[Rfam]
Nucleotides: 097
Base pairs, nucleotide, nucleotide: 007092008091009090010089011088012087013086014085015084
Number, partner (000 for none) and nucleotide at each position: 001000a002000a003000u004000g005000c006000a007092g008091g009090c010089a011088g012087c013086c014085u015084c016000u017000c018000c019000u020000g021000a022000u023000g024000a025000u026000c027000c028000u029000u030000c031000u032000u033000c034000c035000u036000g037000a038000g039000u040000g041000g042000c043000u044000c045000u046000g047000g048000u049000g050000a051000u052000g053000a054000g055000c056000a057000a058000a059000c060000u061000g062000a063000g064000c065000c066000u067000c068000u069000a070000a071000g072000a073000a074000g075000u076000u077000g078000a079000c080000u081000g082000a083000a084015g085014g086013g087012g088011u089010u090009g091008c092007u093000c094000c095000u096000c097000a
Shown here is a 97-nucleotide sequence from Ovis aries, a member of the family "Small nucleolar RNA SNORD125". For this family Rfam cites "snoSeeker: an advanced computational package for screening of guide and orphan snoRNA genes in the human genome" (Yang et al., Nucleic Acids Res, 2006). The source organism's lineage runs through Eukaryota, Artiodactyla, Bovidae, Caprinae and Ovis.